[Rfam]
RNA sequence: UGUAAGCAUUAAGCGUGCGCUGGCACAGGGCAGAACGCACGCAGUCCUGUUUAUCAAAGCAGAUGACACCGAUCAUUUCAUCCUCAGCGAAGCGUUCUAACGCGUCACUGAGACCGGACUUCACACCGCGCGGCAAAUCACACUGAGUGACGUCACCAUUGACGAUCACCGUGACGUUCUCCCCCAAACGCGUC
Numbered sequence: 001u002g003u004a005a006g007c008a009u010u011a012a013g014c015g016u017g018c019g020c021u022g023g024c025a026c027a028g029g030g031c032a033g034a035a036c037g038c039a040c041g042c043a044g045u046c047c048u049g050u051u052u053a054u055c056a057a058a059g060c061a062g063a064u065g066a067c068a069c070c071g072a073u074c075a076u077u078u079c080a081u082c083c084u085c086a087g088c089g090a091a092g093c094g095u096u097c098u099a100a101c102g103c104g105u106c107a108c109u110g111a112g113a114c115c116g117g118a119c120u121u122c123a124c125a126c127c128g129c130g131c132g133g134c135a136a137a138u139c140a141c142a143c144u145g146a147g148u149g150a151c152g153u154c155a156c157c158a159u160u161g162a163c164g165a166u167c168a169c170c171g172u173g174a175c176g177u178u179c180u181c182c183c184c185c186a187a188a189c190g191c192g193u194c
Stems, first nucleotide, its partner, number of pairs: 002054007014041006061078006083112005093102003113193002117189001120187002126133002137166003144158002171183001173181002
RNA: Yersinia sRNA 251
Organism: Serratia symbiotica